Notes: A member of the RNA family "Glycine riboswitch aptamer" from Novosphingobium hassiacum, 129 nucleotides long. NCBI's taxonomy places the organism under Bacteria, Pseudomonadota, Sphingomonadales, Sphingomonadaceae, Novosphingobium. This family represents the bacterial glycine riboswitch. Its family is annotated with glycine biosynthetic process in the Gene Ontology.
Nucleotides: 129
Base pairs, nucleotide, nucleotide: 007123009121010120011119012118013117020042021041022040044108045107046106047104048103051102052101053100057095058094059093060092
Number, partner (000 for none) and nucleotide at each position: 001000u002000a003000g004000c005000g006000a007123c008000g009121c010120u011119c012118u013117g014000g015000a016000a017000a018000g019000u020042g021041c022040u023000a024000c025000u026000u027000c028000c029000c030000g031000u032000a033000c034000g035000g036000g037000a038000g039000g040022g041021g042020c043000c044108g045107c046106c047104g048103a049000a050000g051102g052101g053100g054000u055000a056000a057095c058094c059093c060092c061000g062000c063000a064000c065000a066000a067000g068000c069000c070000c071000u072000c073000u074000u075000c076000u077000c078000g079000g080000g081000a082000g083000a084000g085000g086000a087000g088000g089000g090000u091000g092060g093059g094058g095057g096000a097000a098000a099000g100053c101052u102051c103048u104047c105000a106046g107045g108044u109000u110000u111000c112000c113000g114000u115000g116000a117013c118012a119011g120010a121009g122000g123007g124000g125000g126000c127000g128000c129000c